[Rfam]
Description:
Shown here is a 77-nucleotide sequence from Leptidea sinapis, a member of the family "let-7 microRNA precursor family". NCBI's taxonomy places the organism under Eukaryota, Opisthokonta, Pancrustacea, Panorpida, Leptidea. Rfam's curators write: This family represents the microRNAs (miRNA) let-7 and mir-98. let-7 was identified from a study of developmental timing in C. elegans, and was later shown to be part of a much larger class of non-coding RNAs termed miRNAs. The base pairs follow the family's consensus structure, which was predicted with RNAalifold. Gene Ontology terms of the family: RISC complex and miRNA-mediated post-transcriptional gene silencing.

RNA sequence: UCGGGGUGAGGUAGUAGGUUGUAUAGUACUGUAUCACAACUUUUAGGAGAAACUGUAUAGCCUGCUAACUUUCCUCG
Numbered sequence: 001u002c003g004g005g006g007u008g009a010g011g012u013a014g015u016a017g018g019u020u021g022u023a024u025a026g027u028a029c030u031g032u033a034u035c036a037c038a039a040c041u042u043u044u045a046g047g048a049g050a051a052a053c054u055g056u057a058u059a060g061c062c063u064g065c066u067a068a069c070u071u072u073c074c075u076c077g
Stems, first nucleotide, its partner, number of pairs: 002077005008071003012067016030038003041048002